[Rfam]
RNA sequence: UUGCAGAGCGCAGCGCCAUUUUCAGAGCUAUAAGUGAAAGUUGGUUGUCAUAGCUCUUUAAAUGGUACUGCAGUAUGCAU
Numbered sequence: 001u002u003g004c005a006g007a008g009c010g011c012a013g014c015g016c017c018a019u020u021u022u023c024a025g026a027g028c029u030a031u032a033a034g035u036g037a038a039a040g041u042u043g044g045u046u047g048u049c050a051u052a053g054c055u056c057u058u059u060a061a062a063u064g065g066u067a068c069u070g071c072a073g074u075a076u077g078c079a080u
Base pairs, nucleotide, nucleotide: 002079003078004077007074011070012069013068015066016065017064018063019062020061021060024057025056026055027054028053029052030051031050
This 80-nucleotide RNA sequence from Myripristis murdjan belongs to the Rfam family "mir-458 microRNA precursor family". The organism belongs to Myripristis, within Eukaryota. A search with the family's covariance model found it, with a score of 77 bits. Gene Ontology terms of the family: RISC complex and miRNA-mediated post-transcriptional gene silencing.